The record is a 42-nucleotide RNA sequence, which matches "L31-Actinobacteria ribosomal protein leader" in Rfam. It is one of the family's seed sequences. The base pairs follow the family's consensus structure, which is taken from published work. Rfam classes the family as a cis-regulatory leader.

RNA sequence: CCGGCACCGGUUCACCUCGUGCGUCGCGUGAGGACCCGGGCC
Dot-bracket structure: ..(((.((((....((((((((...))))))))..)))))))
Numbered sequence: 001c002c003g004g005c006a007c008c009g010g011u012u013c014a015c016c017u018c019g020u021g022c023g024u025c026g027c028g029u030g031a032g033g034a035c036c037c038g039g040g041c042c
Stems, first nucleotide, its partner, number of pairs: 003042003007039004015033008